[Rfam]
RNA: SAM (S-adenosyl methionine) riboswitch aptamer
Organism: Tsukamurella paurometabola
RNA sequence: GGUCAUGAGUGCCAGCGCGAAGCCCCGGCUCGCUGGUCGGCAACCCUCCACCGCGGUGGGGUGCUCCGGGUGACGACCUGGCCGCGCCGAACGGGCGCGGCAAGCGCGGAUU
Number, nucleotide and partner (000 for none) at each position: 001g078002g077003u076004c075005a000006u000007g000008a000009g038010u000011g037012c036013c035014a034015g033016c032017g000018c000019g000020a000021a030022g029023c000024c000025c000026c000027g000028g000029c022030u021031c000032g016033c015034u014035g013036g012037u011038c009039g065040g064041c063042a000043a000044c061045c060046c059047u000048c056049c055050a000051c000052c000053g000054c000055g049056g048057u000058g000059g046060g045061g044062u000063g041064c040065u039066c000067c000068g000069g000070g000071u000072g000073a000074c000075g004076a003077c002078c001079u000080g000081g101082c100083c099084g098085c097086g096087c095088c094089g000090a000091a000092c000093g000094g088095g087096c086097g085098c084099g083100g082101c081102a000103a000104g000105c000106g000107c000108g000109g000110a000111u000112u000